Rfam assigns this 113-nucleotide RNA sequence from Streptococcus iniae to the family "Streptococcus sRNA 10". Lineage of the source: Bacteria > Bacillota > Bacilli > Streptococcaceae > Streptococcus. It is annotated as a small RNA. On this family, see Tesorero et al., PLoS One 2013: "Novel regulatory small RNAs in Streptococcus pyogenes".
[Rfam]
RNA sequence: AUCAAGGGAGUAGCAGACGGUUUACCGUGGUUGUAUCGUCAUUACGGAAUUUCGAUUUCCGGUGCAAUCUGAAACAGCGAGACUUGUUUAAUCAAAUAAACAGGUUUUUUAUA
Dot-bracket structure: ....(.((...(((.....)))..)).)((((((((((..(...(((....)))...).)))))))))).........((((((((((((......)))))))))))).....